[Rfam]
Nitrogen stress-induced RNA 1: a 62-nucleotide sequence from Calothrix sp. PCC 7507.
RNA sequence: UGGUAGAUGCACCCUGAUAACUAACUCCCCUGGUAGGACAACUCCUACUAGGGUUUUUUAAU
Numbered sequence: 001u002g003g004u005a006g007a008u009g010c011a012c013c014c015u016g017a018u019a020a021c022u023a024a025c026u027c028c029c030c031u032g033g034u035a036g037g038a039c040a041a042c043u044c045c046u047a048c049u050a051g052g053g054u055u056u057u058u059u060a061a062u
Base pairs, nucleotide, nucleotide: 002013003012004011028053029052030051031050032049033048034047035046036045037044
Dot-bracket structure: .(((......)))..............((((((((((......)))))))))).........

The literature on the family includes a 2010 paper in J Mol Biol by Ionescu et al., "Heterocyst-specific transcription of NsiR1, a non-coding RNA encoded in a tandem array of direct repeats in cyanobacteria".
Pairs were carried over by alignment from the consensus structure.
By type it is a small RNA.